[Rfam]
RNA sequence: UGGUGCCAAAUGUGGGGGCAGUGAGAACAAGAGACCCUGUGAGGGACGUUACUGGAAGAAGGGUCAAUCGAAAAUUCAAAAAUGAAACAAAGGUUAUCACCAUGGGAACCUGCUGUGUUGAGACUGGUGAGUCAUAGUACCAAAAAUGGGGCAAGAAAUAAGUCAGCAUAAAGUAUAUAUGGAACAAACAAGAAAGGCUUUAAAGACAUAAGAAGUAAAGGUAAAAAUUCAGCAUUUAUUGUCAUUUUUUGAUUUUAUUAAAGAGUUAUGUCCCU
Dot-bracket structure: .....(.....((.............))....)....(((.....))).......................................((.((....((..(((((.......)))))..))..))..)).....(.((.((.(...).)))).)....((((((...............................))).)))......((((((((..((((...........))))......))))))))........(..((......))..)
Rfam assigns this 275-nucleotide RNA sequence from Mus musculus to the family "Mason-Pfizer monkey virus packaging signal".
The literature on the family includes a 2004 paper in Virus Res by Mustafa et al., "Mutational analysis of the predicted secondary RNA structure of the Mason-Pfizer monkey virus packaging signal".
Taxonomically the source falls in Mus (Eukaryota, Opisthokonta, Deuterostomia, Myomorpha).
Gene Ontology term of the family: viral genome packaging.
The match comes from Rfam's covariance-model search (122 bits).
This family represents a group of sequences that are related to the Mason-Pfizer monkey virus (MPMV) packaging signal.
By type it is a cis-regulatory element.